RNA sequence: CGGUGGUGAUGUCUGAACUCACGAUGGUCUGCAGAGCCCCUGCGCGGGGGCUGCUGACAACGCCGGUGGCACUGCUGAACCGCAGGG
Numbered sequence: 001c002g003g004u005g006g007u008g009a010u011g012u013c014u015g016a017a018c019u020c021a022c023g024a025u026g027g028u029c030u031g032c033a034g035a036g037c038c039c040c041u042g043c044g045c046g047g048g049g050g051c052u053g054c055u056g057a058c059a060a061c062g063c064c065g066g067u068g069g070c071a072c073u074g075c076u077g078a079a080c081c082g083c084a085g086g087g
Base pairs, nucleotide, nucleotide: 001082002081003080004079